L19-Flavobacteria ribosomal protein leader: a 28-nucleotide RNA sequence. The family's RNA type in Rfam is cis-regulatory leader.
RNA sequence: AAACCUCUAGCGAAAAUCGUGUACGUUU
Numbered sequence: 001a002a003a004c005c006u007c008u009a010g011c012g013a014a015a016a017u018c019g020u021g022u023a024c025g026u027u028u
Stems, first nucleotide, its partner, number of pairs: 001028004008023001010020004